[Rfam]
RNA sequence: AACAGAGAAGGACAUACGCGUUAAGUGUCUAUCCAGGGGACAAAUGGAUAGAACGAACAAUCAAAGAUUGGCGGUGUAUGAUCUUAAUCCGCUGUA
Numbered sequence: 001a002a003c004a005g006a007g008a009a010g011g012a013c014a015u016a017c018g019c020g021u022u023a024a025g026u027g028u029c030u031a032u033c034c035a036g037g038g039g040a041c042a043a044a045u046g047g048a049u050a051g052a053a054c055g056a057a058c059a060a061u062c063a064a065a066g067a068u069u070g071g072c073g074g075u076g077u078a079u080g081a082u083c084u085u086a087a088u089c090c091g092c093u094g095u096a
Stems, first nucleotide, its partner, number of pairs: 002095004010083002013080006019073003025054002028052008038090003058070004
The record is a 96-nucleotide sequence from Acholeplasma hippikon, which matches "THF (Tetrahydrofolate) riboswitch aptamer" in Rfam. On this family, see Huang et al., Proc Natl Acad Sci U S A 2011: "Long-range pseudoknot interactions dictate the regulatory response in the tetrahydrofolate riboswitch". The base pairs follow the family's consensus structure, which is taken from published work. Its family is annotated with tetrahydrofolate metabolic process in the Gene Ontology.